[Rfam]
RNA sequence: GCGGACGUGGCGAAAUCGGUAGACGCAGCAGACUUAAAAUCUGCUUUCCGACAGGAAGUGCGGGUUCAAGUCCCGCCGUCCGCA
Numbered sequence: 001g002c003g004g005a006c007g008u009g010g011c012g013a014a015a016u017c018g019g020u021a022g023a024c025g026c027a028g029c030a031g032a033c034u035u036a037a038a039a040u041c042u043g044c045u046u047u048c049c050g051a052c053a054g055g056a057a058g059u060g061c062g063g064g065u066u067c068a069a070g071u072c073c074c075g076c077c078g079u080c081c082g083c084a
Stems, first nucleotide, its partner, number of pairs: 001083007010026003028044005060076005
RNA: tRNA